[Rfam]
RNA sequence: AGCUUUUAUUGGGUAUCAGCAGUUGUCUUUCAUUAGGAGGAAAAGUAAGGAAGGUACCAAAGGUUGUAGUAGACUUUUAAACUUUGCAGAGUUUUGAGUGCUUGAACUUAACUUUUUCAUUUUACUUCAUCCUUUAAGGAGCACAGUCUCUUGGCGUGCCUACUUCACUUCUCUUAAGCGAAAGAACAGCGAACAGGCAUC
Numbered sequence: 001a002g003c004u005u006u007u008a009u010u011g012g013g014u015a016u017c018a019g020c021a022g023u024u025g026u027c028u029u030u031c032a033u034u035a036g037g038a039g040g041a042a043a044a045g046u047a048a049g050g051a052a053g054g055u056a057c058c059a060a061a062g063g064u065u066g067u068a069g070u071a072g073a074c075u076u077u078u079a080a081a082c083u084u085u086g087c088a089g090a091g092u093u094u095u096g097a098g099u100g101c102u103u104g105a106a107c108u109u110a111a112c113u114u115u116u117u118c119a120u121u122u123u124a125c126u127u128c129a130u131c132c133u134u135u136a137a138g139g140a141g142c143a144c145a146g147u148c149u150c151u152u153g154g155c156g157u158g159c160c161u162a163c164u165u166c167a168c169u170u171c172u173c174u175u176a177a178g179c180g181a182a183a184g185a186a187c188a189g190c191g192a193a194c195a196g197g198c199a200u201c
Stems, first nucleotide, its partner, number of pairs: 002020003007015003029141003033137005039131001040128003047121002050118001052117003071095003075091002096112001098109001100107001150197004157191003163184003166180001168178003
RNA: Connexin-43 internal ribosome entry site (IRES)
Organism: Suricata suricatta